[Rfam]
A member of the RNA family "Purine riboswitch aptamer" from Thermoactinomyces daqus, 102 nucleotides long.

RNA sequence: GAACAAAAUAAUUUGCUUUCUCAUAUAUGCUCAGGAAUAUGGCUUGAGCGUUUCUACCAGGAAACCGUAAAUUUCCCGGCUAUGAGAAAAGUUGAACGGUUA
Numbered sequence: 001g002a003a004c005a006a007a008a009u010a011a012u013u014u015g016c017u018u019u020c021u022c023a024u025a026u027a028u029g030c031u032c033a034g035g036a037a038u039a040u041g042g043c044u045u046g047a048g049c050g051u052u053u054c055u056a057c058c059a060g061g062a063a064a065c066c067g068u069a070a071a072u073u074u075c076c077c078g079g080c081u082a083u084g085a086g087a088a089a090a091g092u093u094g095a096a097c098g099g100u101u102a
Base pairs, nucleotide, nucleotide: 018088019087020086021085022084023083024082025081029049030048031047032046033045034044035043058078060076061075062074063073064072
Lineage of the source: Bacteria > Bacillati > Bacillota > Thermoactinomycetaceae > Thermoactinomyces. From the family's description: Riboswitches are metabolite binding domains within certain messenger RNAs that serve as precision sensors for their corresponding targets.